[Rfam]
RNA sequence: UAAAUGUGAAGACCAGUUAUCACAUAAAAAAACGGGGUAAGGCCGAAAAACCACAGGAGUAGGAAAUCU
Numbered sequence: 001u002a003a004a005u006g007u008g009a010a011g012a013c014c015a016g017u018u019a020u021c022a023c024a025u026a027a028a029a030a031a032a033c034g035g036g037g038u039a040a041g042g043c044c045g046a047a048a049a050a051c052c053a054c055a056g057g058a059g060u061a062g063g064a065a066a067u068c069u
Base pairs, nucleotide, nucleotide: 006023007022008021009020036052037051038050043063044062

The record is a 69-nucleotide RNA from Pontibacter lucknowensis, which matches "DUF805 RNA" in Rfam. The organism belongs to Pontibacter, within Bacteria. Pairs were carried over by alignment from the consensus structure, which is taken from published work. It scores 66 bits against the family's covariance model.